[Rfam]
RNA sequence: AGUUAUUGGACAUGAGGUGAAUGGGUCGAAUGCGCUUGUCUAAGUUCCGACCCAGGAAAGUCCCCGGGCUACUAAUCCGCAGAGAUGCGGCCUCGGUAACGAGAGAGUCAUACGGUCGGAGAGACACAAUAAGCUAAGACGCGUGUGUGGAGCUUUCGUGGUCUCGAUCGAUGUUAACAUGGCCGUUCUAACAGUUAUUCACUUGGUUCCUUAAUUGGUUCUAACAGAACGGGGCUUACUGUUCCAAUGAC
Numbered sequence: 001a002g003u004u005a006u007u008g009g010a011c012a013u014g015a016g017g018u019g020a021a022u023g024g025g026u027c028g029a030a031u032g033c034g035c036u037u038g039u040c041u042a043a044g045u046u047c048c049g050a051c052c053c054a055g056g057a058a059a060g061u062c063c064c065c066g067g068g069c070u071a072c073u074a075a076u077c078c079g080c081a082g083a084g085a086u087g088c089g090g091c092c093u094c095g096g097u098a099a100c101g102a103g104a105g106a107g108u109c110a111u112a113c114g115g116u117c118g119g120a121g122a123g124a125c126a127c128a129a130u131a132a133g134c135u136a137a138g139a140c141g142c143g144u145g146u147g148u149g150g151a152g153c154u155u156u157c158g159u160g161g162u163c164u165c166g167a168u169c170g171a172u173g174u175u176a177a178c179a180u181g182g183c184c185g186u187u188c189u190a191a192c193a194g195u196u197a198u199u200c201a202c203u204u205g206g207u208u209c210c211u212u213a214a215u216u217g218g219u220u221c222u223a224a225c226a227g228a229a230c231g232g233g234g235c236u237u238a239c240u241g242u243u244c245c246a247a248u249g250a251c
Base pairs, nucleotide, nucleotide: 002251003250004249005248006247007246008245009244012242015204016203017202018201019200020199022054023053024052025051026050027049028048032047034045035044036043037042058237059236060235062234063233064232065231078089079088080087081086092103093102094101095100107172108171109170115168116167117166118165119164125160126159127158131155132154133153134152141148142147206221209218210217

Shown here is a 251-nucleotide RNA from Arabis alpina, a member of the family "RNase MRP".
On this family, see Schmitt et al., FASEB J 1993: "Secondary structure of RNase MRP RNA as predicted by phylogenetic comparison".
It is annotated as a ribozyme.
Taxonomically the source falls in Arabis (Eukaryota, Euphyllophyta, Mesangiospermae, eudicotyledons).